Tryptophan operon leader: a 94-nucleotide RNA from Enterovibrio coralii. Rfam classes the family as a cis-regulatory leader.
[Rfam]
RNA sequence: AUUGUAUGGUGGUGGCACUCCCUAUAGCGGGCGGUGUGAUGAGUUAUUGCGAAAGAAAGACGUCACCAAGCCCGCAUAACGCGGGUUUUUUUGU
Numbered sequence: 001a002u003u004g005u006a007u008g009g010u011g012g013u014g015g016c017a018c019u020c021c022c023u024a025u026a027g028c029g030g031g032c033g034g035u036g037u038g039a040u041g042a043g044u045u046a047u048u049g050c051g052a053a054a055g056a057a058a059g060a061c062g063u064c065a066c067c068a069a070g071c072c073c074g075c076a077u078a079a080c081g082c083g084g085g086u087u088u089u090u091u092u093g094u
Stems, first nucleotide, its partner, number of pairs: 009044002015037005020031003069087007